[Rfam]
RNA sequence: AUGAGCCGCCGGAUCUCCCAGUGAGGAGGCCGGGGCCGCUGAAUCCGGUGACCCCGGUCUGCUCGCUGGCGGAUCCGGCGCAAAGA
Numbered sequence: 001a002u003g004a005g006c007c008g009c010c011g012g013a014u015c016u017c018c019c020a021g022u023g024a025g026g027a028g029g030c031c032g033g034g035g036c037c038g039c040u041g042a043a044u045c046c047g048g049u050g051a052c053c054c055c056g057g058u059c060u061g062c063u064c065g066c067u068g069g070c071g072g073a074u075c076c077g078g079c080g081c082a083a084a085g086a
Stems, first nucleotide, its partner, number of pairs: 005081002008079009018069002021066005027060009037050005
RNA: MIR1846 microRNA precursor family